RNA: MIR814 microRNA precursor family
Organism: Oryza sativa
RNA sequence: ACUAGAUGGGACACUUCAUAGUAUAAUGAAUAUGGACAGGAAGCAUGUCCAUAUUCGUUGUACUAUAAAGUGUCACAUCCGGU
Dot-bracket structure: (((.((((.(((((((.(((((((((((((((((((((.......))))))))))))))))))))).))))))).)))).)))
Numbered sequence: 001a002c003u004a005g006a007u008g009g010g011a012c013a014c015u016u017c018a019u020a021g022u023a024u025a026a027u028g029a030a031u032a033u034g035g036a037c038a039g040g041a042a043g044c045a046u047g048u049c050c051a052u053a054u055u056c057g058u059u060g061u062a063c064u065a066u067a068a069a070g071u072g073u074c075a076c077a078u079c080c081g082g083u
Stems, first nucleotide, its partner, number of pairs: 001083003005079004010074007018066021